[Rfam]
RNA sequence: CCGGGCAUGUACCUGCCCGUUCAUUAGAUCGGCAUGCGUCAGGGGCCAACCCUGGGGUGUGAAGCCCGAUUAACAAUGUCUCGCUCGCAAGAGGGUGUUAUCCGGUGACGGAGAACGCUUCGCGUCCGAAUUGCACGGACGUGUCGAG
Numbered sequence: 001c002c003g004g005g006c007a008u009g010u011a012c013c014u015g016c017c018c019g020u021u022c023a024u025u026a027g028a029u030c031g032g033c034a035u036g037c038g039u040c041a042g043g044g045g046c047c048a049a050c051c052c053u054g055g056g057g058u059g060u061g062a063a064g065c066c067c068g069a070u071u072a073a074c075a076a077u078g079u080c081u082c083g084c085u086c087g088c089a090a091g092a093g094g095g096u097g098u099u100a101u102c103c104g105g106u107g108a109c110g111g112a113g114a115a116c117g118c119u120u121c122g123c124g125u126c127c128g129a130a131u132u133g134c135a136c137g138g139a140c141g142u143g144u145c146g147a148g
Base pairs, nucleotide, nucleotide: 002019003018004017005016006015007014028070029069030068031067032066033061034060035059036058037057039055040054041053042052043051044050084093085092086091094121095118096117097116103110104109123141124140125139126138127137128136
Record summary
Group II catalytic intron D1-D4-7: a 148-nucleotide RNA sequence from Stutzerimonas stutzeri. Pairs were carried over by alignment from the consensus structure. Rfam's curators write: Group II introns are found in rRNA, tRNA and mRNA of organelles in fungi, plants and protists, and also in mRNA in bacteria.